[Rfam]
RNA sequence: GGUCGGGUAGCGUACAGUCAUACAACACUCGGGAAACCGGGAAAAUCUGUAGGCCGUCUGGUUGCGGUGUUCAAGUACCCGUCCGCCCCUCU
Numbered sequence: 001g002g003u004c005g006g007g008u009a010g011c012g013u014a015c016a017g018u019c020a021u022a023c024a025a026c027a028c029u030c031g032g033g034a035a036a037c038c039g040g041g042a043a044a045a046u047c048u049g050u051a052g053g054c055c056g057u058c059u060g061g062u063u064g065c066g067g068u069g070u071u072c073a074a075g076u077a078c079c080c081g082u083c084c085g086c087c088c089c090u091c092u
Base pairs, nucleotide, nucleotide: 001084002083004081005080006079007078008077009076013051014050015049016048028041029040030039031038032037053068054067055066056065057064
Description
Rfam assigns this 92-nucleotide RNA sequence from Aquitalea sp. FJL05 to the family "sRNA-Xcc1". By type it is a small RNA. NCBI's taxonomy places the organism under Bacteria, Pseudomonadota, Betaproteobacteria, Neisseriales, Aquitalea.